[Rfam]
RNA sequence: AUAGCAGGUCGCCUUAUCGCUCCCCGCUUUCCGUGGGGGGAGGAAAGUCCGGACACCAUAGUGCAGUAUAGCGGGUAACGCCCGUCCGUCGAGAGAUGAGGACAAGUGCAACAGAAAGUAUGUACAGGUUAUGCUGUAGUGAAACCAGGUAAACUCUAUACGGUGCAACGUCAUGUAAAUCAGUGUUUGAGGGCUGCACGCCCAAGCUGAAGGGUAGGCGGUUAGAGCCUUUGGGCAACCAUUGGCCUAGAUAAAUGAUAGGGAGGCCAUGAAGUAAUUCAAGGCUAACAGAAUCCGGCUUAUGACCUGCUUUUUUU
Numbered sequence: 001a002u003a004g005c006a007g008g009u010c011g012c013c014u015u016a017u018c019g020c021u022c023c024c025c026g027c028u029u030u031c032c033g034u035g036g037g038g039g040g041a042g043g044a045a046a047g048u049c050c051g052g053a054c055a056c057c058a059u060a061g062u063g064c065a066g067u068a069u070a071g072c073g074g075g076u077a078a079c080g081c082c083c084g085u086c087c088g089u090c091g092a093g094a095g096a097u098g099a100g101g102a103c104a105a106g107u108g109c110a111a112c113a114g115a116a117a118g119u120a121u122g123u124a125c126a127g128g129u130u131a132u133g134c135u136g137u138a139g140u141g142a143a144a145c146c147a148g149g150u151a152a153a154c155u156c157u158a159u160a161c162g163g164u165g166c167a168a169c170g171u172c173a174u175g176u177a178a179a180u181c182a183g184u185g186u187u188u189g190a191g192g193g194c195u196g197c198a199c200g201c202c203c204a205a206g207c208u209g210a211a212g213g214g215u216a217g218g219c220g221g222u223u224a225g226a227g228c229c230u231u232u233g234g235g236c237a238a239c240c241a242u243u244g245g246c247c248u249a250g251a252u253a254a255a256u257g258a259u260a261g262g263g264a265g266g267c268c269a270u271g272a273a274g275u276a277a278u279u280c281a282a283g284g285c286u287a288a289c290a291g292a293a294u295c296c297g298g299c300u301u302a303u304g305a306c307c308u309g310c311u312u313u314u315u316u317u
Stems, first nucleotide, its partner, number of pairs: 001313001003311009012263007020040008045301003049298005054165004061199004066161005071085005086100001087098004101156002106154002108150002123138005169220004180210005191203004227246003232241003
Shown here is a 317-nucleotide RNA sequence from Arenibacter sp. NBRC 103722, a member of the family "Bacterial RNase P class A". It is annotated as a ribozyme. A search with the family's covariance model found it, with a score of 205 bits. NCBI's taxonomy places the organism under Bacteria, Flavobacteriia, Flavobacteriales, Flavobacteriaceae, Arenibacter.